[Rfam]
RNA sequence: AUUGAAUUAUACGACUGACGGAAGUGGAAUUGACCACAGGAAGUAUAAUGAUUUGAGGCCGACCGUCUGGGCAUAUCUG
Numbered sequence: 001a002u003u004g005a006a007u008u009a010u011a012c013g014a015c016u017g018a019c020g021g022a023a024g025u026g027g028a029a030u031u032g033a034c035c036a037c038a039g040g041a042a043g044u045a046u047a048a049u050g051a052u053u054u055g056a057g058g059c060c061g062a063c064c065g066u067c068u069g070g071g072c073a074u075a076u077c078u079g
Stems, first nucleotide, its partner, number of pairs: 006049007015040002017067005024037004056074001058072003

The record is a 79-nucleotide RNA sequence from Lachnospiraceae bacterium OF09-33XD, which matches "ZMP/ZTP riboswitch aptamer (pfl RNA motif)" in Rfam. Rfam links the family to the GO terms one-carbon metabolic process and regulation of purine nucleotide biosynthetic process. It scores 56 bits against the family's covariance model. Lineage of the source: Bacteria > Bacillota > Clostridia > Lachnospirales > Lachnospiraceae.